A member of the RNA family "U7 small nuclear RNA" from Propithecus coquereli, 62 nucleotides long. Taxonomically the source falls in Propithecus (Eukaryota, Opisthokonta, Metazoa, Primates). On this family, see Mowry and Steitz, Science 1987: "Identification of the human U7 snRNP as one of several factors involved in the 3' end maturation of histone premessenger RNA's". Pairs were carried over by alignment from the consensus structure, which was predicted with PFOLD. Rfam describes the family as follows. Animal histone pre-mRNAs are spliced by a different mechanism than nuclear pre-mRNAs and self-splicing introns. This processing involves the U7 snRNP, which contains only one RNA species: U7. The 5' end of U7 RNA is thought to base-pair to a conserved spacer element downstream of the cleavage site in histone pre-mRNA. This family contains a number of annotated U7 pseudogenes.
RNA sequence: CAAUGUUACAGUUCUUCUACAAUUUUUCUAGCAGGUUUUCCAGUCCUCACUGGAAGACCCAU
Numbered sequence: 001c002a003a004u005g006u007u008a009c010a011g012u013u014c015u016u017c018u019a020c021a022a023u024u025u026u027u028c029u030a031g032c033a034g035g036u037u038u039u040c041c042a043g044u045c046c047u048c049a050c051u052g053g054a055a056g057a058c059c060c061a062u
Base pairs, nucleotide, nucleotide: 034059035058036057037056038055039054040053041052042051043050044049